[Rfam]
RNA sequence: CGUCCAUCCCGAGCGACUGAGAGACCUGGCUCGCCGAAGUCGCAGCAACCACCCUCCACAGGGCAGGUGCUACCGCCAGGACCGAUGGAGG
Numbered sequence: 001c002g003u004c005c006a007u008c009c010c011g012a013g014c015g016a017c018u019g020a021g022a023g024a025c026c027u028g029g030c031u032c033g034c035c036g037a038a039g040u041c042g043c044a045g046c047a048a049c050c051a052c053c054c055u056c057c058a059c060a061g062g063g064c065a066g067g068u069g070c071u072a073c074c075g076c077c078a079g080g081a082c083c084g085a086u087g088g089a090g091g
Base pairs, nucleotide, nucleotide: 001091003089004088005087006086007085008084013043014042015041016040017039021032022031023030026079027078028077029076044071045070046069047068049067050066052062053061075083

This 91-nucleotide RNA from Amycolatopsis mediterranei belongs to the Rfam family "SAM riboswitch aptamer (S box leader)". The match comes from Rfam's covariance-model search (59 bits).